Annotation: A member of the RNA family "RAGATH-7 RNA", 214 nucleotides long. The sequence is in the family's curated seed alignment. The family's RNA type in Rfam is small RNA. The family's consensus secondary structure is taken from published work.
[Rfam]
RNA sequence: AUAAUACAAUCUUAGAUAUAGAUACGCUAUGCACUGCUAAGGAUAUCUAAAUUGUAUUACAAUCCACGUGGUAGAGUCAUAGUUAGGUUCGCUAUGGUGCAACUCUUUAAGGCAAUAACGAACUAAUUCUAAGCAAGUAAUGGAGAAAUGCCAGGGUCACUAUCUAGCCAUAAUAGUGCUUGACAGUAUGAUACUAACUGAACAAUAAGUAUCA
Numbered sequence: 001a002u003a004a005u006a007c008a009a010u011c012u013u014a015g016a017u018a019u020a021g022a023u024a025c026g027c028u029a030u031g032c033a034c035u036g037c038u039a040a041g042g043a044u045a046u047c048u049a050a051a052u053u054g055u056a057u058u059a060c061a062a063u064c065c066a067c068g069u070g071g072u073a074g075a076g077u078c079a080u081a082g083u084u085a086g087g088u089u090c091g092c093u094a095u096g097g098u099g100c101a102a103c104u105c106u107u108u109a110a111g112g113c114a115a116u117a118a119c120g121a122a123c124u125a126a127u128u129c130u131a132a133g134c135a136a137g138u139a140a141u142g143g144a145g146a147a148a149u150g151c152c153a154g155g156g157u158c159a160c161u162a163u164c165u166a167g168c169c170a171u172a173a174u175a176g177u178g179c180u181u182g183a184c185a186g187u188a189u190g191a192u193a194c195u196a197a198c199u200g201a202a203c204a205a206u207a208a209g210u211a212u213c214a
Stems, first nucleotide, its partner, number of pairs: 002059009012050005023039002026037002073106004078096006127147004134182005159177005189214007